[Rfam]
RNA sequence: GAUUUUAGAAGUAGAAAAGGCACUCUACACACCUAUAUGGUACCUGAGAUGUUGGAUACGCCGCCCAACCUAAAAUC
Numbered sequence: 001g002a003u004u005u006u007a008g009a010a011g012u013a014g015a016a017a018a019g020g021c022a023c024u025c026u027a028c029a030c031a032c033c034u035a036u037a038u039g040g041u042a043c044c045u046g047a048g049a050u051g052u053u054g055g056a057u058a059c060g061c062c063g064c065c066c067a068a069c070c071u072a073a074a075a076u077c
Stems, first nucleotide, its partner, number of pairs: 001077008011028005019062003030046001031041003051069005

Shown here is a 77-nucleotide RNA sequence from Gemella sp. GH3, a member of the family "skipping-rope RNA". Rfam classes the family as a small RNA. Taxonomically the source falls in Gemella (Bacteria, Bacillota, Caryophanales, Gemellaceae). Pairs were carried over by alignment from the consensus structure, which is taken from published work. It scores 71 bits against the family's covariance model.